[Rfam]
RNA sequence: UGGCGGGGUCGCGACUGGCGCACGGGUGGGUCACCACCGGGGAGCGACGCUGCAGCAGACCACGGGUCGGACGCCUGGGCCCCCGGU
Numbered sequence: 001u002g003g004c005g006g007g008g009u010c011g012c013g014a015c016u017g018g019c020g021c022a023c024g025g026g027u028g029g030g031u032c033a034c035c036a037c038c039g040g041g042g043a044g045c046g047a048c049g050c051u052g053c054a055g056c057a058g059a060c061c062a063c064g065g066g067u068c069g070g071a072c073g074c075c076u077g078g079g080c081c082c083c084c085g086g087u
Stems, first nucleotide, its partner, number of pairs: 003053004008048005015041002017075004026037004064082005
ZMP/ZTP riboswitch aptamer (pfl RNA motif): an 87-nucleotide RNA sequence from Cellulomonas marina. The family's consensus secondary structure is taken from published work. Lineage of the source: Bacteria > Bacillati > Actinomycetota > Actinomycetes > Cellulomonas.